Rfam assigns this 188-nucleotide sequence from Sphingobium sp. RAC03 to the family "Manganese Mn2+ riboswitch aptamer (yybP-ykoY)".
RNA sequence: CGACCCGUCAUCUGGGGAGUAGCCAGCCGUUCCGCACUACGGAGCGGGCCUUAUGUCAACAUAUUUGGCCGAGAGGUCAUGGCAUGAGGGACGCGGGUAUGUCCGCGUAAGGCGAGACCAAUGGCAUCGACGUUCCAUGCCCGGCCGGGCGGGGAGCGCCGGUGGCAUUGCGUCAUUCACCUCCGCCC
Number, nucleotide and partner (000 for none) at each position: 001c000002g000003a000004c000005c000006c000007g000008u000009c000010a000011u000012c000013u000014g000015g000016g000017g000018a000019g000020u000021a000022g000023c000024c000025a000026g000027c047028c046029g045030u000031u000032c000033c000034g000035c000036a000037c000038u000039a000040c000041g000042g000043a000044g000045c029046g028047g027048g000049c089050c088051u087052u086053a085054u084055g083056u082057c081058a080059a000060c000061a000062u000063a000064u000065u000066u079067g078068g077069c076070c075071g000072a000073g000074a000075g070076g069077u068078c067079a066080u058081g057082g056083c055084a054085u053086g052087a051088g050089g049090g000091a000092c000093g000094c000095g000096g188097g000098u000099a000100u000101g000102u000103c000104c000105g000106c000107g000108u000109a000110a000111g000112g000113c000114g000115a000116g000117a000118c000119c000120a000121a000122u000123g000124g000125c000126a000127u000128c000129g000130a000131c000132g000133u000134u000135c000136c000137a000138u000139g000140c000141c000142c000143g000144g000145c000146c000147g000148g000149g000150c000151g000152g000153g000154g000155a000156g000157c000158g000159c000160c000161g000162g000163u000164g000165g000166c000167a000168u000169u000170g000171c000172g000173u000174c000175a000176u000177u000178c000179a000180c000181c000182u000183c000184c000185g000186c000187c000188c096
Notes
The base pairs follow the family's consensus structure. Gene Ontology term of the family: manganese ion binding. The source organism's lineage runs through Bacteria, Pseudomonadati, Sphingomonadales, Sphingobiaceae and Sphingobium. On this family, see Price et al., Mol Cell 2015: "Mn(2+)-sensing mechanisms of yybP-ykoY orphan riboswitches".